[Rfam]
RNA sequence: AAUAUAUAAUUAUAGUUAUUGGAACUCAGUGAAGAUCGGUUUAAUCACCGUGCUGAGAGCAUGUGGAUGUCGGCAUAUUAUUAUAUGGGAUACUUUAUAGUGGUGUGCUUCGAAAUGUCGUGAGAUAUCUUAGAAUACUGUGGAAACCAUUAAAGACAAGCAUGUGUACUAAUAAUAAGCGUAGUAAAAAGUUCUGUUCUCAUCGCUGACGUAAUAGAGAGUUGCACUGCAAUGCUGAACCCUGAUGCCUAUGAGCUGGUAACUUAUAGGAGGUAAGUAAGGGAAUACCAAAUAAGUCAGUUCUGCCGUGAGUGUAAAGAAAUUUGCACAAUAAGAUGAGUUGCAGGAAGUAGUAGUCCAAGGUAGUCAUAAUAGAAUGUAUAUUUUAAUUAAAACUACAUAUGAAAUUACAGUAUAUUAAUGAUUCUGAAUGAUGGACGAAGCUUAUGGAUAACCAAUUCCGUAUGCACUAUGUUGGGUGUUUCCCAUAGCACAAGAAGUAUAUAUGCGACGGUGUAUAUGCUCAGACUUGUGUUUGCAUUGACUGAAUAUUAGUGCGUCUAUUAGAAGUAACCCGAAGGGGUACAGUUGCUAUAAUUAUAUA
Numbered sequence: 001a002a003u004a005u006a007u008a009a010u011u012a013u014a015g016u017u018a019u020u021g022g023a024a025c026u027c028a029g030u031g032a033a034g035a036u037c038g039g040u041u042u043a044a045u046c047a048c049c050g051u052g053c054u055g056a057g058a059g060c061a062u063g064u065g066g067a068u069g070u071c072g073g074c075a076u077a078u079u080a081u082u083a084u085a086u087g088g089g090a091u092a093c094u095u096u097a098u099a100g101u102g103g104u105g106u107g108c109u110u111c112g113a114a115a116u117g118u119c120g121u122g123a124g125a126u127a128u129c130u131u132a133g134a135a136u137a138c139u140g141u142g143g144a145a146a147c148c149a150u151u152a153a154a155g156a157c158a159a160g161c162a163u164g165u166g167u168a169c170u171a172a173u174a175a176u177a178a179g180c181g182u183a184g185u186a187a188a189a190a191g192u193u194c195u196g197u198u199c200u201c202a203u204c205g206c207u208g209a210c211g212u213a214a215u216a217g218a219g220a221g222u223u224g225c226a227c228u229g230c231a232a233u234g235c236u237g238a239a240c241c242c243u244g245a246u247g248c249c250u251a252u253g254a255g256c257u258g259g260u261a262a263c264u265u266a267u268a269g270g271a272g273g274u275a276a277g278u279a280a281g282g283g284a285a286u287a288c289c290a291a292a293u294a295a296g297u298c299a300g301u302u303c304u305g306c307c308g309u310g311a312g313u314g315u316a317a318a319g320a321a322a323u324u325u326g327c328a329c330a331a332u333a334a335g336a337u338g339a340g341u342u343g344c345a346g347g348a349a350g351u352a353g354u355a356g357u358c359c360a361a362g363g364u365a366g367u368c369a370u371a372a373u374a375g376a377a378u379g380u381a382u383a384u385u386u387u388a389a390u391u392a393a394a395a396c397u398a399c400a401u402a403u404g405a406a407a408u409u410a411c412a413g414u415a416u417a418u419u420a421a422u423g424a425u426u427c428u429g430a431a432u433g434a435u436g437g438a439c440g441a442a443g444c445u446u447a448u449g450g451a452u453a454a455c456c457a458a459u460u461c462c463g464u465a466u467g468c469a470c471u472a473u474g475u476u477g478g479g480u481g482u483u484u485c486c487c488a489u490a491g492c493a494c495a496a497g498a499a500g501u502a503u504a505u506a507u508g509c510g511a512c513g514g515u516g517u518a519u520a521u522g523c524u525c526a527g528a529c530u531u532g533u534g535u536u537u538g539c540a541u542u543g544a545c546u547g548a549a550u551a552u553u554a555g556u557g558c559g560u561c562u563a564u565u566a567g568a569a570g571u572a573a574c575c576c577g578a579a580g581g582g583g584u585a586c587a588g589u590u591g592c593u594a595u596a597a598u599u600a601u602a603u604a
Stems, first nucleotide, its partner, number of pairs: 009599001011597001015593001017591002020588001022586001025057005037050004059165006073108006080101006087094002109135003112129001115128005140150004173585001175565001178562002184556002187553001190552001191546001194346004199340006205301006222232004240283004245278001248270004253265003257290004303366005313328005350444001356439005426528004450462001466540003469489001475488001490537002496531002500524001502521003506517004573584004
ROOL RNA: a 604-nucleotide RNA. The family's consensus secondary structure is taken from published work. About the family: Firmicutes, Fusobacteria (1 example), Tenericutes (1 example).